[Rfam]
RNA sequence: CGGGAUGUAGCGCAGUUUGGUAGCGCAUUGCAUUUGGGAUGCAAGGGUCGCAGGUUCGAAUCCUGUCAUCCCGA
Numbered sequence: 001c002g003g004g005a006u007g008u009a010g011c012g013c014a015g016u017u018u019g020g021u022a023g024c025g026c027a028u029u030g031c032a033u034u035u036g037g038g039a040u041g042c043a044a045g046g047g048u049c050g051c052a053g054g055u056u057c058g059a060a061u062c063c064u065g066u067c068a069u070c071c072c073g074a
Stems, first nucleotide, its partner, number of pairs: 001073007010026004028044005050066005
Shown here is a 74-nucleotide RNA sequence from Euglena gracilis, a member of the family "tRNA". Pairs were carried over by alignment from the consensus structure, which is taken from published work. The organism belongs to Euglena, within Eukaryota.